[Rfam]
RNA: pan motif
RNA sequence: CGGGUAGUAUCCAAAAGGAACUGCACCUUGCUUACAUUUAUUAUUAAUAGAAUAUUGUUCUGCCUUGAUCCAUGAAUUGGACGGGGACGGAGGA
Numbered sequence: 001c002g003g004g005u006a007g008u009a010u011c012c013a014a015a016a017g018g019a020a021c022u023g024c025a026c027c028u029u030g031c032u033u034a035c036a037u038u039u040a041u042u043a044u045u046a047a048u049a050g051a052a053u054a055u056u057g058u059u060c061u062g063c064c065u066u067g068a069u070c071c072a073u074g075a076a077u078u079g080g081a082c083g084g085g086g087a088c089g090g091a092g093g094a
Stems, first nucleotide, its partner, number of pairs: 002027002004024005010019002060090003063086005069081003